[Rfam]
RNA sequence: UGCCAUAAACCCGUAGAUCCGAUCUUGUGGCGGUUAUGACAGCACAAGCUCGAUUCUGUGGGUCUCUGUCUC
Numbered sequence: 001u002g003c004c005a006u007a008a009a010c011c012c013g014u015a016g017a018u019c020c021g022a023u024c025u026u027g028u029g030g031c032g033g034u035u036a037u038g039a040c041a042g043c044a045c046a047a048g049c050u051c052g053a054u055u056c057u058g059u060g061g062g063u064c065u066c067u068g069u070c071u072c
Base pairs, nucleotide, nucleotide: 002070004068005067007065010062011061012060015057016056017055020052021051022050024048025047026046027045028044029043